[Rfam]
RNA sequence: AAAUAUUUUUACUUUUCCUAACUAUAUUAGUAAAAAAUAAGGAGCAAUAGCUAAUCUCUUGUUCUAUCAAGAGAUUAGCUAUUGCUCCUUAUU
Numbered sequence: 001a002a003a004u005a006u007u008u009u010u011a012c013u014u015u016u017c018c019u020a021a022c023u024a025u026a027u028u029a030g031u032a033a034a035a036a037a038u039a040a041g042g043a044g045c046a047a048u049a050g051c052u053a054a055u056c057u058c059u060u061g062u063u064c065u066a067u068c069a070a071g072a073g074a075u076u077a078g079c080u081a082u083u084g085c086u087c088c089u090u091a092u093u
Stems, first nucleotide, its partner, number of pairs: 038091013052077003056073005
RNA: Plastid-psbA-1 3UTR RNA
Organism: Banisteriopsis caapi